[Rfam]
RNA sequence: GCAGACUCACUCUGCACCUGGCCACAGUCCUGGGCAGGUAAUUUUUCUGUCUACCGCAAGAAUGUUCCAGGGCACUGUGACUACUUUGACCUUUCAAGGGCAAUGCAACAACCCUGAUACAUGGGG
Numbered sequence: 001g002c003a004g005a006c007u008c009a010c011u012c013u014g015c016a017c018c019u020g021g022c023c024a025c026a027g028u029c030c031u032g033g034g035c036a037g038g039u040a041a042u043u044u045u046u047c048u049g050u051c052u053a054c055c056g057c058a059a060g061a062a063u064g065u066u067c068c069a070g071g072g073c074a075c076u077g078u079g080a081c082u083a084c085u086u087u088g089a090c091c092u093u094u095c096a097a098g099g100g101c102a103a104u105g106c107a108a109c110a111a112c113c114c115u116g117a118u119a120c121a122u123g124g125g126g
Stems, first nucleotide, its partner, number of pairs: 001054001003052004016039005022033003066117001068116005076107004082102001084100003
Record summary:
A member of the RNA family "Small nucleolar RNA SNORA77" from Camelus ferus, 126 nucleotides long. The base pairs follow the family's consensus structure, which was predicted with RNAalifold. A search with the family's covariance model found it, with a score of 79 bits. It is annotated as an H/ACA-box small nucleolar RNA. From the family's description: ACA63 (SNORA77) is a member of the H/ACA class of snoRNAs that guide the sites of modification of uridines to pseudouridines. This snoRNA was identified by computational screening and its expression in mouse experimentally verified by Northern blot and primer extension analysis. ACA63 is proposed to guide the pseudouridylation of 18S rRNA U814.